RNA sequence: AUAUAAAAAAUCAUACAAAACCGUAUAACCUUAUAAAUAUGGUAUAAGGGUCUCUACCAGGAACCGUAAAAUCCUGAUUACAGUAAAGUGUACGCGAUAC
Dot-bracket structure: ...................((.(((...(((((((.......)))))))........(((((.........)))))..))).))................
Numbered sequence: 001a002u003a004u005a006a007a008a009a010a011u012c013a014u015a016c017a018a019a020a021c022c023g024u025a026u027a028a029c030c031u032u033a034u035a036a037a038u039a040u041g042g043u044a045u046a047a048g049g050g051u052c053u054c055u056a057c058c059a060g061g062a063a064c065c066g067u068a069a070a071a072u073c074c075u076g077a078u079u080a081c082a083g084u085a086a087a088g089u090g091u092a093c094g095c096g097a098u099a100c
Stems, first nucleotide, its partner, number of pairs: 020084002023081003029049007058076005
Shown here is a 100-nucleotide RNA from Paenibacillus sp. YN15, a member of the family "Purine riboswitch aptamer". On this family, see Mandal and Breaker, Nat Struct Mol Biol 2004: "Adenine riboswitches and gene activation by disruption of a transcription terminator". A search with the family's covariance model found it, with a score of 71 bits.